[Rfam]
Nucleotides: 110
Stems, first nucleotide, its partner, number of pairs: 001110004014100004023042005047087005052081002065079001067077002
Number, partner (000 for none) and nucleotide at each position: 001110g002109g003108g004107a005000u006000a007000u008000g009000a010000u011000g012000a013000g014100u015099g016098g017097u018000c019000a020000a021000a022000a023042c024041u025040c026039a027038c028000c029000u030000a031000a032000u033000u034000c035000u036000a037000u038027g039026u040025g041024a042023g043000a044000a045000u046000u047087g048086g049085g050084u051083g052081u053080c054000c055000a056000g057000c058000c059000u060000a061000a062000g063000c064000c065079a066000g067077g068076u069000u070000a071000c072000g073000a074000c075000a076068a077067u078000a079065u080053g081052a082000c083051c084050a085049c086048u087047c088000c089000c090000a091000u092000u093000u094000g095000u096000u097017a098016c099015c100014a101000a102000u103000c104000u105000g106000a107004u108003c109002c110001c

The record is a 110-nucleotide RNA sequence from Papaver somniferum, which matches "Small nucleolar RNA Z279/snoR105/snoR108" in Rfam. The family has 20 seed sequences and 906 matches in Rfam 15.1. Rfam's curators write: This family includes the plant snoRNAs known as Z279, snoR105 and snoR108. The base pairs follow the family's consensus structure, which was predicted with PFOLD. By type it is a C/D-box small nucleolar RNA. The match comes from Rfam's covariance-model search (82 bits).